[Rfam]
RNA sequence: GUUCCCAGUGAUGUUUUUUUAAACCAUGCUAAUGCUGUUACGUGAUGAUUAUUUCUUUCAUUUUGUUUUUCUGAGCGAACU
Number, nucleotide and partner (000 for none) at each position: 001g080002u079003u078004c077005c000006c000007a000008g000009u000010g000011a000012u000013g000014u000015u000016u000017u000018u000019u000020u000021a000022a000023a000024c000025c000026a000027u000028g000029c000030u000031a000032a000033u000034g000035c000036u000037g000038u000039u000040a000041c000042g000043u000044g000045a000046u000047g000048a000049u000050u000051a000052u000053u000054u000055c000056u000057u000058u000059c000060a000061u000062u000063u000064u000065g000066u000067u000068u000069u000070u000071c000072u000073g000074a000075g000076c000077g004078a003079a002080c001081u000
Small nucleolar RNA snoR53Y: an 81-nucleotide sequence from Lupinus albus. Gene Ontology terms of the family: RNA processing and nucleolus. Rfam classes the family as a C/D-box small nucleolar RNA. NCBI's taxonomy places the organism under Eukaryota, Euphyllophyta, Mesangiospermae, fabids, Lupinus.